Rfam assigns this 306-nucleotide sequence from Tuber magnatum to the family "A. fumigatus sRNA Afu_309". Lineage of the source: Eukaryota > Pezizomycotina > Pezizomycetes > Pezizales > Tuber. A search with the family's covariance model found it, with a score of 102 bits. The family's RNA type in Rfam is small RNA. The family's consensus secondary structure was predicted with WAR.

[Rfam]
RNA sequence: UCCUUCUCUCGAUAAACGGGUUUGUGCCUUCGGUCCUGCGCAUUGAUCCUCGUGUUCGAUGCGGUCCAGUUGUACUGUUGGCAGUUCGGCGAUUAAUGGAAACGUUUUGUUACAAAUAACACCCUGGCGUAAGUCCGCGUCGACAGAUCUCAGAUUGAUGACUUCUUCCUCGUCUUCUCCCAUCUUGAGCUCGUUUUCGGACUGAUCUCGGUGGGGAGGGAGGAAGAUAGUCGGGCGCCAUAUUCCAUCGCGUUGCAUAGAACGUCGUUCCUUGACGCUUGGGCAAAACCAUGGCUGCAUACAUUU
Numbered sequence: 001u002c003c004u005u006c007u008c009u010c011g012a013u014a015a016a017c018g019g020g021u022u023u024g025u026g027c028c029u030u031c032g033g034u035c036c037u038g039c040g041c042a043u044u045g046a047u048c049c050u051c052g053u054g055u056u057c058g059a060u061g062c063g064g065u066c067c068a069g070u071u072g073u074a075c076u077g078u079u080g081g082c083a084g085u086u087c088g089g090c091g092a093u094u095a096a097u098g099g100a101a102a103c104g105u106u107u108u109g110u111u112a113c114a115a116a117u118a119a120c121a122c123c124c125u126g127g128c129g130u131a132a133g134u135c136c137g138c139g140u141c142g143a144c145a146g147a148u149c150u151c152a153g154a155u156u157g158a159u160g161a162c163u164u165c166u167u168c169c170u171c172g173u174c175u176u177c178u179c180c181c182a183u184c185u186u187g188a189g190c191u192c193g194u195u196u197u198c199g200g201a202c203u204g205a206u207c208u209c210g211g212u213g214g215g216g217a218g219g220g221a222g223g224a225a226g227a228u229a230g231u232c233g234g235g236c237g238c239c240a241u242a243u244u245c246c247a248u249c250g251c252g253u254u255g256c257a258u259a260g261a262a263c264g265u266c267g268u269u270c271c272u273u274g275a276c277g278c279u280u281g282g283g284c285a286a287a288a289c290c291a292u293g294g295c296u297g298c299a300u301a302c303a304u305u306u
Stems, first nucleotide, its partner, number of pairs: 018150008026082003032076003035072001036069003039063008048054001090142004094137001166225006181213004187209003191205002193202002235298002237295005250284002252280001255278002260270004